[Rfam]
RNA sequence: GGCCAGAGUAGAAGCGUUCAACCCCGUGCAAUGCGUUGCGAUGCGGGGUGGGAAAUUGCUCUUGAG
Numbered sequence: 001g002g003c004c005a006g007a008g009u010a011g012a013a014g015c016g017u018u019c020a021a022c023c024c025c026g027u028g029c030a031a032u033g034c035g036u037u038g039c040g041a042u043g044c045g046g047g048g049u050g051g052g053a054a055a056u057u058g059c060u061c062u063u064g065a066g
Stems, first nucleotide, its partner, number of pairs: 005062006015051001018053002021049007

Shown here is a 66-nucleotide sequence, a member of the family "Xanthine riboswitch aptamer (NMT1 RNA)". Rfam links the family to the GO term purine nucleobase binding.